[Rfam]
RNA: Y RNA
RNA sequence: GUCUGGUCCGAGUGCAGUGAUGUUUACAACUAACUGGUCACAACCAAUUACAAAUUUCUUUGUUCUUUCUCCACUCCUACUGCUUCAUGUGACUAGUUGG
Numbered sequence: 001g002u003c004u005g006g007u008c009c010g011a012g013u014g015c016a017g018u019g020a021u022g023u024u025u026a027c028a029a030c031u032a033a034c035u036g037g038u039c040a041c042a043a044c045c046a047a048u049u050a051c052a053a054a055u056u057u058c059u060u061u062g063u064u065c066u067u068u069c070u071c072c073a074c075u076c077c078u079a080c081u082g083c084u085u086c087a088u089g090u091g092a093c094u095a096g097u098u099g100g
Base pairs, nucleotide, nucleotide: 003096004095005094006093007092008091010090014086016081017080018079019078022076028064029063030062032060033059